[Rfam]
RNA: ZMP/ZTP riboswitch aptamer (pfl RNA motif)
Organism: Cohnella abietis
RNA sequence: GAACUUAUAUGUGACUGGCGAAGCAUGGGGAUCCAUGAGGAAGCAUAUAAGUUGGAGCCGUACGCCUGGGCAGAGGUA
Numbered sequence: 001g002a003a004c005u006u007a008u009a010u011g012u013g014a015c016u017g018g019c020g021a022a023g024c025a026u027g028g029g030g031a032u033c034c035a036u037g038a039g040g041a042a043g044c045a046u047a048u049a050a051g052u053u054g055g056a057g058c059c060g061u062a063c064g065c066c067u068g069g070g071c072a073g074a075g076g077u078a
Stems, first nucleotide, its partner, number of pairs: 003052010015040002017066004025036004057071003